mir-26 microRNA precursor family: an 80-nucleotide RNA from Denticeps clupeoides.
RNA sequence: CUUAGGCCUGGUUCAAGUAAUCCAGGAUAGGCUGAUAAAGUCGGGAAAGCCUAUUCGGGAUGACUUGGUUCAGGAGUACG
Numbered sequence: 001c002u003u004a005g006g007c008c009u010g011g012u013u014c015a016a017g018u019a020a021u022c023c024a025g026g027a028u029a030g031g032c033u034g035a036u037a038a039a040g041u042c043g044g045g046a047a048a049g050c051c052u053a054u055u056c057g058g059g060a061u062g063a064c065u066u067g068g069u070u071c072a073g074g075a076g077u078a079c080g
Stems, first nucleotide, its partner, number of pairs: 003078002007074005014067005020061003025056009
For this family Rfam cites "Identification of tissue-specific microRNAs from mouse" (Lagos-Quintana et al., Curr Biol, 2002). The family's consensus secondary structure was predicted with RNAalifold. Gene Ontology terms of the family: RISC complex and miRNA-mediated post-transcriptional gene silencing.